[Rfam]
RNA sequence: UUGCAUGUUUUGGCCCCUGGCCUUUCUUGGUCUCUCUUUGUUACUAUAGAGAGGACAAGUAGAAACAUGCUAGAGUAACGCUGAAAUAACUGGGAGUUAACAGGGCCACCAGUCUCUAAAGGUCAGGCUGAGUUGGUAGUAUAAUACUCCCACACUU
Numbered sequence: 001u002u003g004c005a006u007g008u009u010u011u012g013g014c015c016c017c018u019g020g021c022c023u024u025u026c027u028u029g030g031u032c033u034c035u036c037u038u039u040g041u042u043a044c045u046a047u048a049g050a051g052a053g054g055a056c057a058a059g060u061a062g063a064a065a066c067a068u069g070c071u072a073g074a075g076u077a078a079c080g081c082u083g084a085a086a087u088a089a090c091u092g093g094g095a096g097u098u099a100a101c102a103g104g105g106c107c108a109c110c111a112g113u114c115u116c117u118a119a120a121g122g123u124c125a126g127g128c129u130g131a132g133u134u135g136g137u138a139g140u141a142u143a144a145u146a147c148u149c150c151c152a153c154a155c156u157u
Stems, first nucleotide, its partner, number of pairs: 003070006031054007093150004105137002109132001110130006